[Rfam]
RNA sequence: CCCCUUGGUGCGUCGGGGUCAUGGCGCACCACUCCUCCCUGUUGGACUUGGCCGGGCUUUAUGCCCGGCCUUUUUU
Numbered sequence: 001c002c003c004c005u006u007g008g009u010g011c012g013u014c015g016g017g018g019u020c021a022u023g024g025c026g027c028a029c030c031a032c033u034c035c036u037c038c039c040u041g042u043u044g045g046a047c048u049u050g051g052c053c054g055g056g057c058u059u060u061a062u063g064c065c066c067g068g069c070c071u072u073u074u075u076u
Stems, first nucleotide, its partner, number of pairs: 008029007050070008
RNA: Singlet oxygen resistance RNA X